A member of the RNA family "c-di-GMP-I riboswitch aptamer" from Rhodoferax saidenbachensis, 90 nucleotides long. It scores 59 bits against the family's covariance model. The family's consensus secondary structure is taken from published work. Its family is annotated with cyclic-di-GMP binding in the Gene Ontology.

RNA sequence: GCAUCUAAAAAGCACACCUUUACGAAAGUUGGGGUCGCAAAGCUUCCGGUCUACCGCCUCCUGAGGGGCCAAGAUAGCGGAGUUGCUGAU
Numbered sequence: 001g002c003a004u005c006u007a008a009a010a011a012g013c014a015c016a017c018c019u020u021u022a023c024g025a026a027a028g029u030u031g032g033g034g035u036c037g038c039a040a041a042g043c044u045u046c047c048g049g050u051c052u053a054c055c056g057c058c059u060c061c062u063g064a065g066g067g068g069c070c071a072a073g074a075u076a077g078c079g080g081a082g083u084u085g086c087u088g089a090u
Base pairs, nucleotide, nucleotide: 012038013037017033018032019031022029023028041084042083043082044081046080047079048078049075050074051073056069057068058067059066